[Rfam]
RNA sequence: GACUUCCAUUUAUCAGUGGAUAAGACUUUGGUCUUAGUAUAUAUGAGUUCGUGGAAGUUUUGAAAGUAAAGGAGCAAUUAUUAAUUUCUUGUUAUAUCAAGAGAUUGUGUAUUGCUCCUUU
Dot-bracket structure: ....(((((......)))))...............................................(((((((((((...(((.(((((........))))).)))...)))))))))))
About this RNA
A member of the RNA family "Plastid-psbA-1 3UTR RNA" from Rubus takesimensis, 121 nucleotides long. It is one of the family's seed sequences.